The family of this 124-nucleotide RNA sequence from Pediococcus argentinicus is "Ribosomal protein L20 leader". The organism belongs to Pediococcus, within Bacteria. The match comes from Rfam's covariance-model search (67 bits). The family's consensus secondary structure was predicted with CMfinder.
RNA sequence: AGAUAAAAGCAGAAGCCACCGCUUCUCGCCUUGUAAUUUUGAUUGCUGGGCUAAGUCGUUGAAUGAUCAAAUAUUGAUCAAUACAAAACGGGUGGCAUUGUGCCAUCCGUUUUUCUGCUUUCUC
Numbered sequence: 001a002g003a004u005a006a007a008a009g010c011a012g013a014a015g016c017c018a019c020c021g022c023u024u025c026u027c028g029c030c031u032u033g034u035a036a037u038u039u040u041g042a043u044u045g046c047u048g049g050g051c052u053a054a055g056u057c058g059u060u061g062a063a064u065g066a067u068c069a070a071a072u073a074u075u076g077a078u079c080a081a082u083a084c085a086a087a088a089c090g091g092g093u094g095g096c097a098u099u100g101u102g103c104c105a106u107c108c109g110u111u112u113u114u115c116u117g118c119u120u121u122c123u124c
Stems, first nucleotide, its partner, number of pairs: 011026006028051003033046005087111010
From the family's description: This family is a putative r-protein leader autoregulatory structure found in B. subtilis and other low-GC Gram-positive bacteria. It is located in the 5' untranslated regions of mRNAs encoding initiation factor 3 followed by ribosomal proteins L35 and L20 (infC-rpmI-rplT). A Rho-independent transcription terminator structure that is probably involved in regulation is included at the 3' end. Its family is annotated with regulation of gene expression in the Gene Ontology.